This 118-nucleotide RNA sequence from Gossypium anomalum belongs to the Rfam family "U5 spliceosomal RNA".
RNA sequence: AGCCGUGUAAUGAGCACAGAGCGAACUAUUCUUUCGCCUUUUACUAAGGAAUACCGUGUGCUCAGCACCUUAAGCGGCAUAUGCCAAUUUUUGGAAGGGCAUUCCUCGUUGAAUGCCU
Number, nucleotide and partner (000 for none) at each position: 001a000002g000003c077004c076005g075006u074007g000008u067009a000010a000011u064012g063013a062014g061015c060016a059017c058018a057019g000020a000021g000022c000023g000024a000025a000026c000027u053028a052029u051030u050031c049032u048033u047034u046035c000036g000037c000038c000039u000040u000041u000042u000043a000044c000045u000046a034047a033048g032049g031050a030051a029052u028053a027054c000055c000056g000057u018058g017059u016060g015061c014062u013063c012064a011065g000066c000067a008068c000069c000070u000071u000072a000073a000074g006075c005076g004077g003078c000079a000080u000081a000082u000083g000084c000085c000086a000087a000088u000089u000090u000091u000092u000093g000094g000095a118096a000097g000098g117099g116100c115101a114102u113103u112104c000105c000106u000107c000108g000109u000110u000111g000112a103113a102114u101115g100116c099117c098118u095